The record is a 75-nucleotide RNA sequence from Eutrema salsugineum, which matches "Small nucleolar RNA snoR53Y" in Rfam. The match comes from Rfam's covariance-model search (80 bits). Lineage of the source: Eukaryota > Mesangiospermae > Pentapetalae > malvids > Eutrema. Rfam links the family to the GO terms nucleolus and RNA processing. For this family Rfam cites "Multiple snoRNA gene clusters from Arabidopsis" (Brown et al., RNA, 2001).
[Rfam]
RNA sequence: AUUCCCUAUGAUGGUUUUAACCAUGCUAAUACUGAGUUCUUAUGACUGAUUCAAAGUUAAGUUUCUGAGGGAAUU
Numbered sequence: 001a002u003u004c005c006c007u008a009u010g011a012u013g014g015u016u017u018u019a020a021c022c023a024u025g026c027u028a029a030u031a032c033u034g035a036g037u038u039c040u041u042a043u044g045a046c047u048g049a050u051u052c053a054a055a056g057u058u059a060a061g062u063u064u065c066u067g068a069g070g071g072a073a074u075u
Stems, first nucleotide, its partner, number of pairs: 001074005